[Rfam]
RNA sequence: AGCCAGUGAUGACAGCUUUUCAUUUCUGACACCUCGUCUGACAGUGCAAGCACAGCACCUGAUUACAUUAUGUAACUGAGGCUU
Numbered sequence: 001a002g003c004c005a006g007u008g009a010u011g012a013c014a015g016c017u018u019u020u021c022a023u024u025u026c027u028g029a030c031a032c033c034u035c036g037u038c039u040g041a042c043a044g045u046g047c048a049a050g051c052a053c054a055g056c057a058c059c060u061g062a063u064u065a066c067a068u069u070a071u072g073u074a075a076c077u078g079a080g081g082c083u084u
Base pairs, nucleotide, nucleotide: 001083002082003081004080044058045057047055